Notes:
mir-133 microRNA precursor family: a 78-nucleotide sequence from Capitella teleta. NCBI's taxonomy places the organism under Eukaryota, Eumetazoa, Polychaeta, Scolecida, Capitella. About the family: mir-133 was first experimentally characterised in mouse and homologues have since been discovered in several other species. The mature sequence is excised from the 3' arm of the hairpin. A search with the family's covariance model found it, with a score of 58 bits.
RNA sequence: ACGCCGUAGCUGGUUGAAACUGGGUCAAAUUGUGCGCUGCUUGCGGUUCAUUUGGUCCCCUUCAACCAGCUGUGGGUG
Numbered sequence: 001a002c003g004c005c006g007u008a009g010c011u012g013g014u015u016g017a018a019a020c021u022g023g024g025u026c027a028a029a030u031u032g033u034g035c036g037c038u039g040c041u042u043g044c045g046g047u048u049c050a051u052u053u054g055g056u057c058c059c060c061u062u063c064a065a066c067c068a069g070c071u072g073u074g075g076g077u078g
Base pairs, nucleotide, nucleotide: 004075005074006073008071009070010069011068012067013066014065015064016063017062018061022058023057024056025055026054027053028052029051030050